[Rfam]
RNA sequence: GAUUGUAAACUUUCUCUCUACAAUCGCGGCUG
Numbered sequence: 001g002a003u004u005g006u007a008a009a010c011u012u013u014c015u016c017u018c019u020a021c022a023a024u025c026g027c028g029g030c031u032g
Stems, first nucleotide, its partner, number of pairs: 001025007